[Rfam]
RNA sequence: UUGCUAUGAUGAUAGUCACUUGGUUUCGCUGUCUUCUGAUGUUGAAUGAGGAUACUUUUCUCUUGGCUGUCUGAGCAG
Numbered sequence: 001u002u003g004c005u006a007u008g009a010u011g012a013u014a015g016u017c018a019c020u021u022g023g024u025u026u027c028g029c030u031g032u033c034u035u036c037u038g039a040u041g042u043u044g045a046a047u048g049a050g051g052a053u054a055c056u057u058u059u060c061u062c063u064u065g066g067c068u069g070u071c072u073g074a075g076c077a078g
Stems, first nucleotide, its partner, number of pairs: 001078004
RNA: Small nucleolar RNA SNORD53/SNORD92